[Rfam]
RNA sequence: CGUGGGAUGCCGAAGUCGGGUCCCGCGUGACACAACUCGCUGAAUUUCAGGAGAUUUAAACAUGAGC
Numbered sequence: 001c002g003u004g005g006g007a008u009g010c011c012g013a014a015g016u017c018g019g020g021u022c023c024c025g026c027g028u029g030a031c032a033c034a035a036c037u038c039g040c041u042g043a044a045u046u047u048c049a050g051g052a053g054a055u056u057u058a059a060a061c062a063u064g065a066g067c
Base pairs, nucleotide, nucleotide: 001027002026003025004024005023006022007021008020010019011018012017036053037052038051040050041049042048043047
RNA: Repression of heat shock gene expression (ROSE) element